[Rfam]
RNA: Small nucleolar RNA SNORD100
RNA sequence: UGUAUCAGUGAUGAUAGCUUGGCUCCCUCUACUGAACUCCAGUGAGGAGAACCGCCAUCGUUACCCAACUGUGACUGAGAUGCA
Numbered sequence: 001u002g003u004a005u006c007a008g009u010g011a012u013g014a015u016a017g018c019u020u021g022g023c024u025c026c027c028u029c030u031a032c033u034g035a036a037c038u039c040c041a042g043u044g045a046g047g048a049g050a051a052c053c054g055c056c057a058u059c060g061u062u063a064c065c066c067a068a069c070u071g072u073g074a075c076u077g078a079g080a081u082g083c084a
Stems, first nucleotide, its partner, number of pairs: 001084006